[Rfam]
chrB-a RNA: an 85-nucleotide sequence from Candidatus Rhodobacter oscarellae. Pairs were carried over by alignment from the consensus structure, which is taken from published work. It is annotated as a cis-regulatory element. The source organism's lineage runs through Bacteria, Pseudomonadati, Alphaproteobacteria, Rhodobacterales and Rhodobacter.

RNA sequence: UCCAUGGGGCCAAGCGCGCGCGCCCCGUGAGGCCUAGGCCCAAGCGUCGCAUCCACGACCCUUACCAAGGGAAGGAUGUACCAUG
Numbered sequence: 001u002c003c004a005u006g007g008g009g010c011c012a013a014g015c016g017c018g019c020g021c022g023c024c025c026c027g028u029g030a031g032g033c034c035u036a037g038g039c040c041c042a043a044g045c046g047u048c049g050c051a052u053c054c055a056c057g058a059c060c061c062u063u064a065c066c067a068a069g070g071g072a073a074g075g076a077u078g079u080a081c082c083a084u085g
Stems, first nucleotide, its partner, number of pairs: 005027006049079006